[Rfam]
RNA sequence: GUGUUUUUCAUGGUAUUAGAUUAUUAAGGUUAAUUUAAGAAGUUGGUUGUCGUGAGACAAUCAAUUUUUUUAUG
Numbered sequence: 001g002u003g004u005u006u007u008u009c010a011u012g013g014u015a016u017u018a019g020a021u022u023a024u025u026a027a028g029g030u031u032a033a034u035u036u037a038a039g040a041a042g043u044u045g046g047u048u049g050u051c052g053u054g055a056g057a058c059a060a061u062c063a064a065u066u067u068u069u070u071u072a073u074g
Stems, first nucleotide, its partner, number of pairs: 045062007

The record is a 74-nucleotide sequence from Prevotellaceae bacterium HUN156, which matches "Bacteroidetes FopS (family of paralogous sRNAs)" in Rfam. It is annotated as a small RNA. Rfam describes the family as follows. The RNA-binding protein RbpB and BTncRNA_FopS sRNA are involved in the post-transcription regulation of polysaccharide utilisation loci (PUL). FopS sRNAs function as post-transcriptional repressors by binding to the vicinity of the start codon of the first mRNA of target PUL polycistrons, typically corresponding to the cognate SusC homolog, impeding translation of the respective glycan transporter. Rfam links the family to the GO term sRNA-mediated gene silencing. It scores 70 bits against the family's covariance model. The organism belongs to Prevotellaceae, within Bacteria. Pairs were carried over by alignment from the consensus structure, which is taken from published work.